RNA sequence: GUAGUCGAAUUUACAUCAAUCCACAUGUGUUGAGGUGGAUUGGAGUAGAACUUGAACUAAAUUACACCCCAAUCCACACCAAUACACAUGGAUUAAAAGAAAUCCGACA
Numbered sequence: 001g002u003a004g005u006c007g008a009a010u011u012u013a014c015a016u017c018a019a020u021c022c023a024c025a026u027g028u029g030u031u032g033a034g035g036u037g038g039a040u041u042g043g044a045g046u047a048g049a050a051c052u053u054g055a056a057c058u059a060a061a062u063u064a065c066a067c068c069c070c071a072a073u074c075c076a077c078a079c080c081a082a083u084a085c086a087c088a089u090g091g092a093u094u095a096a097a098a099g100a101a102a103u104c105c106g107a108c109a
Stems, first nucleotide, its partner, number of pairs: 004108004009103004016096001018094006026086007035077009045067002
The family of this 109-nucleotide RNA sequence from Sorghum bicolor is "MIR5565 microRNA precursor family". Its family is annotated with miRNA-mediated post-transcriptional gene silencing and RISC complex in the Gene Ontology. The source organism's lineage runs through Eukaryota, Streptophyta, Panicoideae, Andropogoneae and Sorghum.